mir-135 microRNA precursor family: an 85-nucleotide RNA sequence from Ornithorhynchus anatinus. Taxonomically the source falls in Ornithorhynchus (Eukaryota, Eumetazoa, Bilateria, Monotremata). A reference for the family is Kim et al. (2004), "Identification of many microRNAs that copurify with polyribosomes in mammalian neurons", Proc Natl Acad Sci U S A.
RNA sequence: UCACUCUAGUGUUUUAUGGCUUUUUAUUCCUAUGUGAUAGUAAUAAAGUCUCAUGUAGGGAUGGAAGCCAUGAAAUACAUUGUGA
Dot-bracket structure: .(((..(.(((((((((((((((..((((((((((((.............)))))))))))).))))))))))))))))..))).
Numbered sequence: 001u002c003a004c005u006c007u008a009g010u011g012u013u014u015u016a017u018g019g020c021u022u023u024u025u026a027u028u029c030c031u032a033u034g035u036g037a038u039a040g041u042a043a044u045a046a047a048g049u050c051u052c053a054u055g056u057a058g059g060g061a062u063g064g065a066a067g068c069c070a071u072g073a074a075a076u077a078c079a080u081u082g083u084g085a
Stems, first nucleotide, its partner, number of pairs: 002084003007079001009078015026062012
Rfam links the family to the GO terms RISC complex and gene silencing by miRNA.